[Rfam]
Nucleotides: 164
Stems, first nucleotide, its partner, number of pairs: 003085005016074003020070003024066003027059006035051006104158003124139004129134001140153005
Number, partner (000 for none) and nucleotide at each position: 001000a002000u003085g004084c005083a006082c007081c008000a009000g010000a011000u012000a013000c014000u015000a016074a017073c018072c019000u020070g021069g022068c023000u024066g025065u026064c027059g028058u029057u030056g031055u032054c033000g034000c035051a036050g037049u038048u039047u040046u041000a042000a043000c044000a045000u046040a047039g048038a049037a050036c051035u052000g053000a054032g055031a056030c057029a058028a059027u060000c061000u062000a063000u064026g065025a066024u067000u068022g069021u070020u071000g072018g073017g074016u075000c076000c077000a078000a079000g080000c081007g082006g083005u084004g085003c086000u087000a088000a089000a090000u091000c092000a093000a094000a095000a096000u097000a098000a099000a100000a101000a102000a103000a104158a105157c106156c107000u108000u109000g110000a111000g112000c113000a114000u115000a116000u117000u118000a119000g120000c121000u122000u123000a124139g125138u126137g127136u128000g129134u130000a131000g132000a133000g134129a135000a136127a137126c138125a139124c140153u141152g142151a143150g144149u145000u146000a147000u148000a149144a150143c151142u152141c153140a154000g155000a156106g157105g158104u159000a160000c161000a162000g163000c164000a
A member of the RNA family "Small Cajal body specific RNA 1" from Chiloscyllium punctatum, 164 nucleotides long. Pairs were carried over by alignment from the consensus structure, which was predicted with RNAalifold. Gene Ontology terms of the family: Cajal body, RNA processing and nucleolus. Taxonomically the source falls in Chiloscyllium (Eukaryota, Craniata, Vertebrata, Orectolobiformes). scaRNAs are a specific class of small nuclear RNAs which localise to the Cajal bodies and guide the modification of RNA polymerase II transcribed spliceosomal RNAs U1, U2, U4, U5 and U12. ACA35 belong to the H/ACA box class of guide RNAs as it has the predicted hairpin-hinge-hairpin-tail structure, conserved H/ACA-box motifs and is found associated with GAR1. It is predicted to guide pseudouridylation of the U2 spliceosomal snRNA at residue U89. On this family, see Darzacq et al., EMBO J 2002: "Cajal body-specific small nuclear RNAs: a novel class of 2'-O-methylation and pseudouridylation guide RNAs".